The family of this 353-nucleotide RNA from Desulfosarcina alkanivorans is "transfer-messenger RNA".
The base pairs follow the family's consensus structure, which is taken from published work.
Its family is annotated with RNA catabolic process in the Gene Ontology.
Rfam classes the family as a non-coding RNA gene.
A reference for the family is Williams (2002), "The tmRNA Website: invasion by an intron", Nucleic Acids Res.
[Rfam]
RNA sequence: GGGGGCGAAACGGCUUCGACGGGGAUAAAGAAGCAUUGAUUGCAUGCCGAGCUCUCACCGACUCGUAAAACUGGUGGGAACUAAAUAUAAUCGCUGACGAUUAUAACUACGCCGUAGCAGCUUAGUGCUACCGUUCUACCGGGUUUUUCCCGCGGACCUGGAUAGAGCGUCGACUAGUGGGAUAGCCGAUGCUGAAUGCCUGCUACAGCAGCGGCGAAACUUUAGCAGGAUAGCCUUUGCAUUACCCUGCCUGAUGGAGACUGUCAGAGGCGAUACUUAGAGAUCAGGACAAGCAUGUAGAUAUCCGUGUGGAAUAUUUUCGGACGCGGGUUCGACUCCCGCCGCCUCCACCA
Numbered sequence: 001g002g003g004g005g006c007g008a009a010a011c012g013g014c015u016u017c018g019a020c021g022g023g024g025a026u027a028a029a030g031a032a033g034c035a036u037u038g039a040u041u042g043c044a045u046g047c048c049g050a051g052c053u054c055u056c057a058c059c060g061a062c063u064c065g066u067a068a069a070a071c072u073g074g075u076g077g078g079a080a081c082u083a084a085a086u087a088u089a090a091u092c093g094c095u096g097a098c099g100a101u102u103a104u105a106a107c108u109a110c111g112c113c114g115u116a117g118c119a120g121c122u123u124a125g126u127g128c129u130a131c132c133g134u135u136c137u138a139c140c141g142g143g144u145u146u147u148u149c150c151c152g153c154g155g156a157c158c159u160g161g162a163u164a165g166a167g168c169g170u171c172g173a174c175u176a177g178u179g180g181g182a183u184a185g186c187c188g189a190u191g192c193u194g195a196a197u198g199c200c201u202g203c204u205a206c207a208g209c210a211g212c213g214g215c216g217a218a219a220c221u222u223u224a225g226c227a228g229g230a231u232a233g234c235c236u237u238u239g240c241a242u243u244a245c246c247c248u249g250c251c252u253g254a255u256g257g258a259g260a261c262u263g264u265c266a267g268a269g270g271c272g273a274u275a276c277u278u279a280g281a282g283a284u285c286a287g288g289a290c291a292a293g294c295a296u297g298u299a300g301a302u303a304u305c306c307g308u309g310u311g312g313a314a315u316a317u318u319u320u321c322g323g324a325c326g327c328g329g330g331u332u333c334g335a336c337u338c339c340c341g342c343c344g345c346c347u348c349c350a351c352c353a
Stems, first nucleotide, its partner, number of pairs: 001349007020322008033310004038305003043297005048065004053079007114131006132169006139161007148182006185215004190210004203229002233271007246257002251288002254284002326342005
Bacterial tmRNA, also known as 10Sa RNA or SsrA, is named for its dual tRNA and mRNA-like properties. The source organism's lineage runs through Bacteria, Pseudomonadati, Desulfobacteria, Desulfosarcinaceae and Desulfosarcina.